[Rfam]
The record is a 92-nucleotide RNA sequence from Streptomyces dangxiongensis, which matches "sodF sRNA" in Rfam. Its family is annotated with mRNA binding, regulation of mRNA stability and negative regulation of translation in the Gene Ontology. NCBI's taxonomy places the organism under Bacteria, Actinomycetota, Actinomycetes, Kitasatosporales, Streptomyces. A reference for the family is Kim et al. (2014), "Inverse regulation of Fe- and Ni-containing SOD genes by a Fur family regulator Nur through small RNA processed from 3'UTR of the sodF mRNA", Nucleic Acids Res. Pairs were carried over by alignment from the consensus structure.

RNA sequence: UCGUCCCGCCUCGUGAUCGUCUUCUCACCCUUCACGGCGGCGGGCGGAUGAAGGGAGGGCCCCGGCGAGGACGUGACUCGCGGGGGCCCUCC
Numbered sequence: 001u002c003g004u005c006c007c008g009c010c011u012c013g014u015g016a017u018c019g020u021c022u023u024c025u026c027a028c029c030c031u032u033c034a035c036g037g038c039g040g041c042g043g044g045c046g047g048a049u050g051a052a053g054g055g056a057g058g059g060c061c062c063c064g065g066c067g068a069g070g071a072c073g074u075g076a077c078u079c080g081c082g083g084g085g086g087c088c089c090u091c092c
Base pairs, nucleotide, nucleotide: 001047002046003045005044006043007042008041009040010039013035014034015033016032019029054092055091056090057089058088059087060086061085062084063083065081066080067079068078069077